[Rfam]
RNA sequence: AUAGCACCAGAUAGCUCAACAUAUCUUACUUUAAAAAGUAAGAUAUGUUGAGCUAUCUGGUGCUAAUUAAAUGUAACCAAAUUAAAAUUUGGUUACAUUU
Numbered sequence: 001a002u003a004g005c006a007c008c009a010g011a012u013a014g015c016u017c018a019a020c021a022u023a024u025c026u027u028a029c030u031u032u033a034a035a036a037a038g039u040a041a042g043a044u045a046u047g048u049u050g051a052g053c054u055a056u057c058u059g060g061u062g063c064u065a066a067u068u069a070a071a072u073g074u075a076a077c078c079a080a081a082u083u084a085a086a087a088u089u090u091g092g093u094u095a096c097a098u099u100u
Base pairs, nucleotide, nucleotide: 003064004063005062006061007060008059016051017050018049019048020047022045023044024043025042026041075094076093077092078091079090080089081088

Annotation: Rfam assigns this 100-nucleotide sequence from Vanessa tameamea to the family "small nucleolar RNA snoR137". The family's consensus secondary structure was predicted with RNAalifold. Rfam links the family to the GO terms RNA processing and nucleolus. It is annotated as an H/ACA-box small nucleolar RNA.